This 47-nucleotide RNA sequence from Staphylococcus saprophyticus belongs to the Rfam family "PreQ1 (pre queuosine) riboswitch aptamer". Pairs were carried over by alignment from the consensus structure. About the family: This family is a bacterial riboswitch that binds to the metabolite preQ1, an intermediate in the biosynthesis of the modified nucleoside queuosine from GTP. One example of this riboswitch is located in the leader of the Bacillus subtilis ykvJKLM (queCDEF) operon which encodes four genes necessary for queuosine production. PreQ1 binding to the riboswitch aptamer is thought to induce premature transcription termination within the leader to down-regulate expression of these genes. The source organism's lineage runs through Bacteria, Caryophanales, Staphylococcaceae, Staphylococcus and Staphylococcus saprophyticus.
RNA sequence: UAUAAAGAGGUUCCUAGCUGAUACCCUCUAUAAAAAACUAGACACAU
Numbered sequence: 001u002a003u004a005a006a007g008a009g010g011u012u013c014c015u016a017g018c019u020g021a022u023a024c025c026c027u028c029u030a031u032a033a034a035a036a037a038c039u040a041g042a043c044a045c046a047u
Base pairs, nucleotide, nucleotide: 006029007028008027009026010025015040016039